A member of the RNA family "c-di-GMP-I riboswitch aptamer" from Isachenkonia alkalipeptolytica, 74 nucleotides long.
The base pairs follow the family's consensus structure, which is taken from published work.
A reference for the family is Sudarsan et al. (2008), "Riboswitches in Eubacteria Sense the Second Messenger Cyclic Di-GMP", Science.
The organism belongs to Isachenkonia, within Bacteria.

Nucleotides: 074
Stems, first nucleotide, its partner, number of pairs: 012037002017032006040068004047064002049060003
Number, partner (000 for none) and nucleotide at each position: 001000u002000c003000a004000c005000g006000a007000u008000a009000a010000a011000a012037g013036c014000a015000a016000a017032c018031c019030a020029a021028g022027g023000g024000a025000a026000a027022u028021c029020u030019u031018g032017g033000g034000a035000c036013g037012c038000a039000a040068a041067g042066c043065u044000a045000u046000a047064g048063g049060g050059c051058c052000u053000a054000a055000g056000g057000a058051g059050g060049c061000a062000g063048c064047c065043a066042g067041c068040u069000a070000c071000c072000g073000a074000a